[Rfam]
RNA sequence: AUGCACAAGCAGGGGAACCCCGGGAAGCGCGGGGUUGAGAGUGGCUUUGAGGCCAGACCCUUGGAACCUGUUGGUUAAGACCAGCGUAGGGAGCACCGCAUGAGCGCAG
Numbered sequence: 001a002u003g004c005a006c007a008a009g010c011a012g013g014g015g016a017a018c019c020c021c022g023g024g025a026a027g028c029g030c031g032g033g034g035u036u037g038a039g040a041g042u043g044g045c046u047u048u049g050a051g052g053c054c055a056g057a058c059c060c061u062u063g064g065a066a067c068c069u070g071u072u073g074g075u076u077a078a079g080a081c082c083a084g085c086g087u088a089g090g091g092a093g094c095a096c097c098g099c100a101u102g103a104g105c106g107c108a109g
Base pairs, nucleotide, nucleotide: 009094010093011061012060013059014058017035018034019033020032021031042055043054044053045052046051067090068089069088070087071084072083073082074081
TPP riboswitch aptamer (THI element): a 109-nucleotide sequence from Bifidobacterium pullorum. The family's consensus secondary structure is taken from published work. Gene Ontology term of the family: thiamine pyrophosphate binding.